[Rfam]
RNA sequence: UCAGCGGGCCGUGACUGGCGCGCUGGGUCCUGACGGCAGGACCCCUGGAUGGGAUGGACCAUCGGGGAGCGGCCCCCGCGAAAGCUGUGCCGUGCGCCUGGGCCGAACCG
Numbered sequence: 001u002c003a004g005c006g007g008g009c010c011g012u013g014a015c016u017g018g019c020g021c022g023c024u025g026g027g028u029c030c031u032g033a034c035g036g037c038a039g040g041a042c043c044c045c046u047g048g049a050u051g052g053g054a055u056g057g058a059c060c061a062u063c064g065g066g067g068a069g070c071g072g073c074c075c076c077c078g079c080g081a082a083a084g085c086u087g088u089g090c091c092g093u094g095c096g097c098c099u100g101g102g103c104c105g106a107a108c109c110g
Base pairs, nucleotide, nucleotide: 004077006075007074008073009072010071011070012069015066016065017098018097019096020095021094049062050061051060052059089103090102091101
The family of this 110-nucleotide sequence from Streptomyces sp. Ru71 is "ZMP/ZTP riboswitch aptamer (pfl RNA motif)".
Rfam links the family to the GO terms one-carbon metabolic process and regulation of purine nucleotide biosynthetic process.
The organism belongs to Streptomyces, within Bacteria.
The base pairs follow the family's consensus structure, which is taken from published work.